A member of the RNA family "Small nucleolar RNA SNORA30/SNORA37 family" from Propithecus coquereli, 129 nucleotides long. The source organism's lineage runs through Eukaryota, Craniata, Amniota, Indriidae and Propithecus. The literature on the family includes a 2001 paper in EMBO J by Huttenhofer et al., "RNomics: an experimental approach that identifies 201 candidates for novel, small, non-messenger RNAs in mouse". Its family is annotated with RNA processing and nucleolus in the Gene Ontology. It is annotated as an H/ACA-box small nucleolar RNA. From the family's description: The members of this family belong to the H/ACA class of snoRNAs that guide the sites of modification of uridines to pseudouridines. This family includes human ACA30 (SNORA30), ACA37 (SNORA37) and the mouse homolog MBI-26. The base pairs follow the family's consensus structure, which was predicted with RNAfold.
[Rfam]
RNA sequence: CGAGCACUUUCACAUGUCCUCCCCAAGGUAGUGGGGCCAGGAUUUGGUAGCUGGUGCUGAGACAAAACCCUUGAUUGUGUCCUUGCCCUGGGACUGUACCAGUGGCAGCUGUCACUCAGUGGUACAGAG
Numbered sequence: 001c002g003a004g005c006a007c008u009u010u011c012a013c014a015u016g017u018c019c020u021c022c023c024c025a026a027g028g029u030a031g032u033g034g035g036g037c038c039a040g041g042a043u044u045u046g047g048u049a050g051c052u053g054g055u056g057c058u059g060a061g062a063c064a065a066a067a068c069c070c071u072u073g074a075u076u077g078u079g080u081c082c083u084u085g086c087c088c089u090g091g092g093a094c095u096g097u098a099c100c101a102g103u104g105g106c107a108g109c110u111g112u113c114a115c116u117c118a119g120u121g122g123u124a125c126a127g128a129g
Stems, first nucleotide, its partner, number of pairs: 003058006013046002017042004022036003069122002071119004076114002079112002083108005088102004
Dot-bracket structure: ..((((((....((..((((.(((.........)))..))))..))......))))))..........((((((.((.((..(((((((((.......)))).)))))..)))).)))).)).......